Nucleotides: 079
Stems, first nucleotide, its partner, number of pairs: 002078006009071005017063005023057004030053003
Number, partner (000 for none) and nucleotide at each position: 001000c002078c003077u004076g005075g006074u007073c008000c009071u010070c011069g012068g013067u014000a015000g016000u017063g018062g019061u020060u021059c022000u023057c024056g025055g026054g027000u028000c029000a030053g031052c032051g033000c034000g035000u036000c037000c038000a039000c040000g041000u042000c043000g044000a045000c046000g047000c048000c049000g050000a051032c052031g053030c054026c055025c056024c057023g058000c059021g060020a061019g062018c063017c064000u065000c066000g067013a068012u069011c070010g071009a072000a073007g074006a075005c076004c077003g078002g079000c